[Rfam]
RNA sequence: UAGGAGGAUCUGUAAAGCUCAGGAGGGAUAGCGCCACGGACACUACUAAUGGCGGCCACCGUCGUGGAGGAGGGAGGUGGCGCUAUCUAUCCUGAGUUUCACGGACUCUUCUU
Numbered sequence: 001u002a003g004g005a006g007g008a009u010c011u012g013u014a015a016a017g018c019u020c021a022g023g024a025g026g027g028a029u030a031g032c033g034c035c036a037c038g039g040a041c042a043c044u045a046c047u048a049a050u051g052g053c054g055g056c057c058a059c060c061g062u063c064g065u066g067g068a069g070g071a072g073g074g075a076g077g078u079g080g081c082g083c084u085a086u087c088u089a090u091c092c093u094g095a096g097u098u099u100c101a102c103g104g105a106c107u108c109u110u111c112u113u
Stems, first nucleotide, its partner, number of pairs: 010104001016098009026088012

Shown here is a 113-nucleotide sequence from Rhododendron simsii, a member of the family "MIR390 microRNA precursor family". The organism belongs to Rhododendron, within Eukaryota.